[Rfam]
RNA sequence: GUUGAGAAGGUGAUGAUUUAAUUAUUGCAUAGUUCAACUGAACGCCUCCAAGGCUGUGUUGAAAAUUUUCCAUCAAAGUCUUUCGCUCCUAUCUGAUUCUCAAC
Numbered sequence: 001g002u003u004g005a006g007a008a009g010g011u012g013a014u015g016a017u018u019u020a021a022u023u024a025u026u027g028c029a030u031a032g033u034u035c036a037a038c039u040g041a042a043c044g045c046c047u048c049c050a051a052g053g054c055u056g057u058g059u060u061g062a063a064a065a066u067u068u069u070c071c072a073u074c075a076a077a078g079u080c081u082u083u084c085g086c087u088c089c090u091a092u093c094u095g096a097u098u099c100u101c102a103a104c
Stems, first nucleotide, its partner, number of pairs: 004101005
Shown here is a 104-nucleotide RNA from Peronospora effusa, a member of the family "Small nucleolar RNA snR60/Z15/Z230/Z193/J17". It scores 70 bits against the family's covariance model.